[Rfam]
RNA sequence: GUGCAUGUGAUGGAAAACAUUUCAGUUUCCUGAGACUUAGUGAUGUCUUCAAAGGAACCACUGAUGCAC
Number, nucleotide and partner (000 for none) at each position: 001g069002u068003g067004c066005a065006u000007g000008u000009g000010a000011u000012g000013g000014a000015a000016a000017a000018c000019a000020u000021u000022u000023c000024a000025g000026u000027u000028u000029c000030c000031u000032g000033a000034g000035a000036c000037u000038u000039a000040g000041u000042g000043a000044u000045g000046u000047c000048u000049u000050c000051a000052a000053a000054g000055g000056a000057a000058c000059c000060a000061c000062u000063g000064a000065u005066g004067c003068a002069c001

Small nucleolar RNA SNORD42: a 69-nucleotide RNA from Jaculus jaculus.
The organism belongs to Jaculus, within Eukaryota.
Rfam links the family to the GO terms RNA processing and nucleolus.
The literature on the family includes a 2002 paper in Mol Cell Biol by Galardi et al., "Purified box C/D snoRNPs are able to reproduce site-specific 2'-O-methylation of target RNA in vitro".
Rfam describes the family as follows. snoRNA U42 is found in intron 3 of the ribosomal protein L23a (RPL23a) gene in humans and is also present in mice.
By type it is a C/D-box small nucleolar RNA.